Shown here is a 92-nucleotide RNA from Polaribacter sp. KT25b, a member of the family "Flavo-1 RNA".

RNA sequence: AACUAACAUUCCGCGUUAAGGAUAGCAAUGGAAAUCCUUUUUUUGCUGCCAUUUAUGGCAAAAAAAGAUUGAAAUGGAUAGCCUGUUAAAAC
Numbered sequence: 001a002a003c004u005a006a007c008a009u010u011c012c013g014c015g016u017u018a019a020g021g022a023u024a025g026c027a028a029u030g031g032a033a034a035u036c037c038u039u040u041u042u043u044u045g046c047u048g049c050c051a052u053u054u055a056u057g058g059c060a061a062a063a064a065a066a067g068a069u070u071g072a073a074a075u076g077g078a079u080a081g082c083c084u085g086u087u088a089a090a091a092c
Base pairs, nucleotide, nucleotide: 019084020083021082023080024079028075029074033070034069035068036067039065040064041063042062043061044060045059046058047057048056
It scores 62 bits against the family's covariance model. The source organism's lineage runs through Bacteria, Pseudomonadati, Flavobacteriia, Flavobacteriales and Polaribacter.